[Rfam]
RNA sequence: UGGGCUGGUCAUAAGACCCAGGUCCAUCACAGGCGGGGAAGUUCCCC
Dot-bracket structure: ((((((((((....))))..)))))).....................

This 47-nucleotide RNA sequence belongs to the Rfam family "DUF3800-XI RNA". Rfam classes the family as a small RNA. The sequence is in the family's curated seed alignment. Actinobacteria, Firmicutes, Proteobacteria, Spirochaetes (1 example).